This 93-nucleotide RNA sequence from Nyctereutes procyonoides belongs to the Rfam family "mir-8799 microRNA precursor family".
Pairs were carried over by alignment from the consensus structure, which was predicted with RNAalifold.
A search with the family's covariance model found it, with a score of 57 bits.
Rfam links the family to the GO terms RISC complex and miRNA-mediated post-transcriptional gene silencing.
[Rfam]
RNA sequence: AAGGGAAGCGCAGGGUCCAGGGCUGUGUCCCCCGGUGCCCUGGGCUCUGGGGCCUGCGCUGCUGGGAUCCUACUCCCGGCCGGGUGGCCCCUU
Number, nucleotide and partner (000 for none) at each position: 001a093002a092003g091004g090005g089006a000007a000008g000009c000010g085011c084012a000013g081014g080015g000016u000017c079018c078019a000020g076021g075022g074023c000024u072025g071026u000027g069028u066029c065030c000031c000032c064033c061034g060035g059036u058037g057038c056039c000040c000041u000042g054043g000044g053045c052046u051047c000048u000049g000050g000051g046052g045053c044054c042055u000056g038057c037058g036059c035060u034061g033062c000063u000064g032065g029066g028067a000068u000069c027070c000071u025072a024073c000074u022075c021076c020077c000078g018079g017080c014081c013082g000083g000084g011085u010086g000087g000088c000089c005090c004091c003092u002093u001